[Rfam]
Shown here is a 52-nucleotide sequence from Pyruvatibacter mobilis, a member of the family "ffh sRNA". The literature on the family includes a 2009 paper in BMC Genomics by Meyer et al., "Identification of candidate structured RNAs in the marine organism 'Candidatus Pelagibacter ubique'".
RNA sequence: GCGUCCGCACGUCGCCACCCGUCAGCGCGUUGCGCCCACGGGUGCGUUACUG
Numbered sequence: 001g002c003g004u005c006c007g008c009a010c011g012u013c014g015c016c017a018c019c020c021g022u023c024a025g026c027g028c029g030u031u032g033c034g035c036c037c038a039c040g041g042g043u044g045c046g047u048u049a050c051u052g
Stems, first nucleotide, its partner, number of pairs: 016044007025035004